[Rfam]
RNA sequence: AAUAAAGCUGUCAUAGUUCCAUAGACAGCAGGUGUCGUAAGACAUAAUGGGUAACCGCCUGCCGAGGAAAGAAUGAUCGAACAAAACAAGGUUUGUGUUGAUUGAUUGUGCUCUUUCUGCGGUGGAUGCGGAAGGAGUUUUUUUAUUGCCCA
Numbered sequence: 001a002a003u004a005a006a007g008c009u010g011u012c013a014u015a016g017u018u019c020c021a022u023a024g025a026c027a028g029c030a031g032g033u034g035u036c037g038u039a040a041g042a043c044a045u046a047a048u049g050g051g052u053a054a055c056c057g058c059c060u061g062c063c064g065a066g067g068a069a070a071g072a073a074u075g076a077u078c079g080a081a082c083a084a085a086a087c088a089a090g091g092u093u094u095g096u097g098u099u100g101a102u103u104g105a106u107u108g109u110g111c112u113c114u115u116u117c118u119g120c121g122g123u124g125g126a127u128g129c130g131g132a133a134g135g136a137g138u139u140u141u142u143u144u145a146u147u148g149c150c151c152a
Base pairs, nucleotide, nucleotide: 028062029061030060031059032058033057034043035042036041111137112136113135114134115133116132117131118130119129120128
Shown here is a 152-nucleotide RNA sequence from Hydrogenoanaerobacterium saccharovorans, a member of the family "Ribosomal protein L10 leader". Taxonomically the source falls in Hydrogenoanaerobacterium (Bacteria, Bacillota, Clostridia, Oscillospiraceae). The family's consensus secondary structure was predicted with CMfinder. By type it is a cis-regulatory leader. The match comes from Rfam's covariance-model search (76 bits).